This 85-nucleotide sequence belongs to the Rfam family "c-di-GMP-II-GAG riboswitch aptamer".
[Rfam]
RNA sequence: CGGCUGGCGGGAGGCUCUGACACGCGCUCCAAACACCGGCCGCCGGGACCGCGUCGAGCCACUGGCGAGACCGACCCGCGAGUGC
Dot-bracket structure: ..(((.(((((.(((......(((((.((........[[.[[[[..)).)))))...)))...]]]]...]]..))))).)))..
Clan: c-di-GMP_II riboswitch clan.
Rfam's curators put it in the seed alignment.